[Rfam]
RNA sequence: UCUUCAUUUCGCACACUCUCUCGAUUAUUAGAGUGGCGAGAGAGUAUGUGAAAUGAAGAGA
Numbered sequence: 001u002c003u004u005c006a007u008u009u010c011g012c013a014c015a016c017u018c019u020c021u022c023g024a025u026u027a028u029u030a031g032a033g034u035g036g037c038g039a040g041a042g043a044g045u046a047u048g049u050g051a052a053a054u055g056a057a058g059a060g061a
Stems, first nucleotide, its partner, number of pairs: 001059007010050001012048002015045003019041004
Shown here is a 61-nucleotide RNA sequence from Pristionchus pacificus, a member of the family "mir-8364 microRNA precursor family".
Rfam 15.1 lists 3,320 matches to the family in 2 species.
Taxonomically the source falls in Pristionchus (Eukaryota, Opisthokonta, Rhabditina, Diplogasteroidea).
It scores 71 bits against the family's covariance model.